Rfam assigns this 71-nucleotide sequence from Carpinus fangiana to the family "tRNA".
The source organism's lineage runs through Eukaryota, Embryophyta, Pentapetalae, Betulaceae and Carpinus.
Its family is annotated with triplet codon-amino acid adaptor activity in the Gene Ontology.
Rfam describes the family as follows. Transfer RNA (tRNA) molecules are approximately 80 nucleotides in length. Their secondary structure includes four short double-helical elements and three loops (D, anti-codon, and T loops). Further hydrogen bonds mediate the characteristic L-shaped molecular structure. tRNAs have two regions of fundamental functional importance: the anti-codon, which is responsible for specific mRNA codon recognition, and the 3' end, to which the tRNAs corresponding amino acid is attached (by aminoacyl-tRNA synthetases). tRNAs cope with the degeneracy of the genetic code in two manners: having more than one tRNA (with a specific anti-codon) for a particular amino acid; and 'wobble' base-pairing, i.e. permitting non-standard base-pairing at the 3rd anti-codon position.

RNA sequence: GCCUGAUUAGCAUAAAAGUAAUGCAGCCGUUUUGUAAUCGGCAGAAGUAAGCGCGAUACUUACAUUGGGCU
Numbered sequence: 001g002c003c004u005g006a007u008u009a010g011c012a013u014a015a016a017a018g019u020a021a022u023g024c025a026g027c028c029g030u031u032u033u034g035u036a037a038u039c040g041g042c043a044g045a046a047g048u049a050a051g052c053g054c055g056a057u058a059c060u061u062a063c064a065u066u067g068g069g070c071u
Stems, first nucleotide, its partner, number of pairs: 001070007010024004026042004047063005